[Rfam]
RNA: Ribosomal protein L20 leader
Organism: Aneurinibacillus soli
RNA sequence: AAUCCAAAGCAGGAGCACCCGCUUCUCACCUGCGUGACGCACGAUGAGCUGUCAGCAGGUAUCUGAUACUUCCAUAGUUGUAACAUUAUGGAAUGAUUGAUACAUGCGGGCGCAGUGCGUCCGCAUUUUUUUGCUUUG
Numbered sequence: 001a002a003u004c005c006a007a008a009g010c011a012g013g014a015g016c017a018c019c020c021g022c023u024u025c026u027c028a029c030c031u032g033c034g035u036g037a038c039g040c041a042c043g044a045u046g047a048g049c050u051g052u053c054a055g056c057a058g059g060u061a062u063c064u065g066a067u068a069c070u071u072c073c074a075u076a077g078u079u080g081u082a083a084c085a086u087u088a089u090g091g092a093a094u095g096a097u098u099g100a101u102a103c104a105u106g107c108g109g110g111c112g113c114a115g116u117g118c119g120u121c122c123g124c125a126u127u128u129u130u131u132u133g134c135u136u137u138g
Stems, first nucleotide, its partner, number of pairs: 011026006028060003036053003039049002105125009